[Rfam]
RNA sequence: AAUCCGAAGCGGGGGUGCCUCCGGCAGCGCCGGAGUGCUGAGAAAUACCCUUUGAACCUGACCCGGCUCGCACCGGCGUAGGGAAGCUUUGAUGACAGCUCU
Dot-bracket structure: .....(((((((((.(((((((((.....)))))).))......)..)))).....((((..((((......))))..))))...)))))............